The record is a 104-nucleotide RNA sequence from Frigidibacter albus, which matches "Glycine riboswitch aptamer" in Rfam. It scores 55 bits against the family's covariance model. Clan: Glycine riboswitch clan.

RNA sequence: GGGUCAGGAUCGGGAGAAUCCGGGGCACCCCGCAAGGGGCACUCCGGUGCCGAAGGAGCAACCGCCCCGGUAAACUCUCAGGCGCAAGGGACCGUUCUGGCACA
Numbered sequence: 001g002g003g004u005c006a007g008g009a010u011c012g013g014g015a016g017a018a019u020c021c022g023g024g025g026c027a028c029c030c031c032g033c034a035a036g037g038g039g040c041a042c043u044c045c046g047g048u049g050c051c052g053a054a055g056g057a058g059c060a061a062c063c064g065c066c067c068c069g070g071u072a073a074a075c076u077c078u079c080a081g082g083c084g085c086a087a088g089g090g091a092c093c094g095u096u097c098u099g100g101c102a103c104a
Stems, first nucleotide, its partner, number of pairs: 007098003011094003020047006049083003052079002056077003062070002